[Rfam]
Shown here is a 116-nucleotide RNA from Shewanella algae, a member of the family "Ribosomal S15 leader". The base pairs follow the family's consensus structure, which is taken from published work. Rfam's curators write: The E. coli Ribosomal S15 gene 5' UTR can form two alternative structures. One that is a series of three hairpins, The other includes a pseudoknot. This structure causes translational regulation of the S15 protein. The family is grouped with related families in Rfam's "Ribosomal Protein S15 Leader clan".
RNA sequence: GCCCUUGGCUGAGUUAGUGAUCGGCUGGGGAAACUAUCAAGACUAUUUUGGAGAGACACAUGUCACUAAGUACUGAAGCGAAAGCGAAAAUCCUGGCUGAAUUCGGCCGUGGCGAA
Numbered sequence: 001g002c003c004c005u006u007g008g009c010u011g012a013g014u015u016a017g018u019g020a021u022c023g024g025c026u027g028g029g030g031a032a033a034c035u036a037u038c039a040a041g042a043c044u045a046u047u048u049u050g051g052a053g054a055g056a057c058a059c060a061u062g063u064c065a066c067u068a069a070g071u072a073c074u075g076a077a078g079c080g081a082a083a084g085c086g087a088a089a090a091u092c093c094u095g096g097c098u099g100a101a102u103u104c105g106g107c108c109g110u111g112g113c114g115a116a
Stems, first nucleotide, its partner, number of pairs: 007026006047070005053064001

Its family is annotated with regulation of translation, ncRNA-mediated in the Gene Ontology. Lineage of the source: Bacteria > Pseudomonadota > Alteromonadales > Shewanellaceae > Shewanella. The family's RNA type in Rfam is cis-regulatory leader.